[Rfam]
RNA sequence: GGACUCGGAUGCCGUGAGGCCUCUGUCCGCUCAGUGGCCCUGGUGCACCUUCCCCGGCACCAGGUUCUCAGCGGGCGGGCGGGGACCUGACGGCAUCCGUUUCUCAUG
Numbered sequence: 001g002g003a004c005u006c007g008g009a010u011g012c013c014g015u016g017a018g019g020c021c022u023c024u025g026u027c028c029g030c031u032c033a034g035u036g037g038c039c040c041u042g043g044u045g046c047a048c049c050u051u052c053c054c055c056g057g058c059a060c061c062a063g064g065u066u067c068u069c070a071g072c073g074g075g076c077g078g079g080c081g082g083g084g085a086c087c088u089g090a091c092g093g094c095a096u097c098c099g100u101u102u103c104u105c106a107u108g
Base pairs, nucleotide, nucleotide: 010095011094012093013092014091015090018087019086021084022083023082024081025080026079027078028077029076030075031074034069036067037066039064040063041062042061043060044059045058046057
The record is a 108-nucleotide RNA sequence from Amycolatopsis alkalitolerans, which matches "mraW RNA" in Rfam. It scores 68 bits against the family's covariance model. The family has 45 seed sequences and 851 matches in Rfam 15.1.